[Rfam]
RNA sequence: AGGGGCACAAUGAGGAUACGAAUUUGUAGUGGUAUUUAUGAGGUUCAAAUAUCAAUGAUCUUAUAACUUUAGUCCUUUUCAUUCUGAGUGCCUC
Number, nucleotide and partner (000 for none) at each position: 001a000002g000003g000004g092005g091006c090007a089008c088009a000010a082011u081012g080013a079014g078015g000016a000017u000018a000019c000020g000021a000022a000023u000024u000025u000026g000027u000028a000029g000030u000031g000032g000033u000034a000035u000036u000037u000038a000039u000040g000041a000042g000043g052044u051045u000046c000047a000048a000049a000050u000051a044052u043053c000054a000055a000056u000057g000058a000059u000060c000061u000062u000063a000064u000065a000066a000067c000068u000069u000070u000071a000072g000073u000074c000075c000076u000077u000078u014079u013080c012081a011082u010083u000084c000085u000086g000087a000088g008089u007090g006091c005092c004093u000094c000
RNA: Small nucleolar RNA Z162
Organism: Prunus armeniaca